A member of the RNA family "Trypanosomatid snoRNA TB10Cs5H2" from Trypanosoma brucei, 67 nucleotides long. It is one of the family's seed sequences. It is annotated as an H/ACA-box small nucleolar RNA. Gene Ontology terms of the family: RNA processing and nucleolus. The base pairs follow the family's consensus structure, which was predicted with WAR.
RNA sequence: GGAGCAGACUACGUCUGUAAUAUGCGGAACCAACCUUCUCUGCACUUUACUGUAAAUGUCUGCGAGA
Numbered sequence: 001g002g003a004g005c006a007g008a009c010u011a012c013g014u015c016u017g018u019a020a021u022a023u024g025c026g027g028a029a030c031c032a033a034c035c036u037u038c039u040c041u042g043c044a045c046u047u048u049a050c051u052g053u054a055a056a057u058g059u060c061u062g063c064g065a066g067a
Base pairs, nucleotide, nucleotide: 004063005062006061007060008059009058017050018049019048023044